[Rfam]
RNA sequence: UAAGGGAUGCCGAAAACCUUGAAAAGAGUAGGAA
Numbered sequence: 001u002a003a004g005g006g007a008u009g010c011c012g013a014a015a016a017c018c019u020u021g022a023a024a025a026g027a028g029u030a031g032g033a034a
Stems, first nucleotide, its partner, number of pairs: 002020004010032002